[Rfam]
RNA sequence: AAAAACGGUCCCGGACGACUCUACAUUUUUCGUUCGGCAUCCGUAAUGGAAAGGAGAGUAAUCAUCACCCGUAUCGGCUCGCGGUGCAGCAGCGUGGAGACCUGUUGUAAAACCUUCGCUCCCAGGGCGGGCGUUGGUGAGUCGCGCUGUUAGCAAAAGCAGGGCGUGGCAGAGCCGGCGAUAUGGCG
Numbered sequence: 001a002a003a004a005a006c007g008g009u010c011c012c013g014g015a016c017g018a019c020u021c022u023a024c025a026u027u028u029u030u031c032g033u034u035c036g037g038c039a040u041c042c043g044u045a046a047u048g049g050a051a052a053g054g055a056g057a058g059u060a061a062u063c064a065u066c067a068c069c070c071g072u073a074u075c076g077g078c079u080c081g082c083g084g085u086g087c088a089g090c091a092g093c094g095u096g097g098a099g100a101c102c103u104g105u106u107g108u109a110a111a112a113c114c115u116u117c118g119c120u121c122c123c124a125g126g127g128c129g130g131g132c133g134u135u136g137g138u139g140a141g142u143c144g145c146g147c148u149g150u151u152a153g154c155a156a157a158a159g160c161a162g163g164g165c166g167u168g169g170c171a172g173a174g175c176c177g178g179c180g181a182u183a184u185g186g187c188g
Stems, first nucleotide, its partner, number of pairs: 007041003011037008069084004074178007085109008094101002112138003117133004141170008153160002
Annotation: A member of the RNA family "malK-I RNA", 188 nucleotides long. Rfam's curators put it in the seed alignment.